Rfam assigns this 107-nucleotide sequence from Sinorhizobium medicae to the family "Rhizobiales sRNA Atu_At1". The source organism's lineage runs through Bacteria, Pseudomonadota, Alphaproteobacteria, Hyphomicrobiales and Sinorhizobium medicae. Pairs were carried over by alignment from the consensus structure, which was predicted with CMfinder.
RNA sequence: GUGCGGUCUGUGGCAACCGGACGCGACGGAACAGGAGAGCACGGGAACUUGCCGCUUUCUUUCCGUGGCCCAUAAACUGGCAGACGAGUUCCUGACCCGUCCAGGCC
Numbered sequence: 001g002u003g004c005g006g007u008c009u010g011u012g013g014c015a016a017c018c019g020g021a022c023g024c025g026a027c028g029g030a031a032c033a034g035g036a037g038a039g040c041a042c043g044g045g046a047a048c049u050u051g052c053c054g055c056u057u058u059c060u061u062u063c064c065g066u067g068g069c070c071c072a073u074a075a076a077c078u079g080g081c082a083g084a085c086g087a088g089u090u091c092c093u094g095a096c097c098c099g100u101c102c103a104g105g106c107c
Stems, first nucleotide, its partner, number of pairs: 006106004011023002014020001025101005034092004040067007068081003